[Rfam]
RNA sequence: CUGCCGGGACGACCCGGCUAUGAACGGGUAUUUGCCAGGACGACCUGC
Numbered sequence: 001c002u003g004c005c006g007g008g009a010c011g012a013c014c015c016g017g018c019u020a021u022g023a024a025c026g027g028g029u030a031u032u033u034g035c036c037a038g039g040a041c042g043a044c045c046u047g048c
Stems, first nucleotide, its partner, number of pairs: 003018006036047004